[Rfam]
RNA: Group II catalytic intron D1-D4-1
RNA sequence: GCAGGGGAGCUGAAAAGCAGCUUCCUCAUGUUCGGCAGAAGUCAGCAGAAGCCAUAGUAGUCGGCCUGACCAGCCGAUGAAGGGC
Numbered sequence: 001g002c003a004g005g006g007g008a009g010c011u012g013a014a015a016a017g018c019a020g021c022u023u024c025c026u027c028a029u030g031u032u033c034g035g036c037a038g039a040a041g042u043c044a045g046c047a048g049a050a051g052c053c054a055u056a057g058u059a060g061u062c063g064g065c066c067u068g069a070c071c072a073g074c075c076g077a078u079g080a081a082g083g084g085c
Stems, first nucleotide, its partner, number of pairs: 001029001004026008042049002051085003060078006